RNA sequence: AAACCCAGAAAAGCGACGGACAGGAUCCUUUAGUCCGUCGCUUUUCUAGGUUUUA
Numbered sequence: 001a002a003a004c005c006c007a008g009a010a011a012a013g014c015g016a017c018g019g020a021c022a023g024g025a026u027c028c029u030u031u032a033g034u035c036c037g038u039c040g041c042u043u044u045u046c047u048a049g050g051u052u053u054u055a
Stems, first nucleotide, its partner, number of pairs: 001053005007047015
RNA: MIR8008 microRNA precursor family
Organism: Solanum commersonii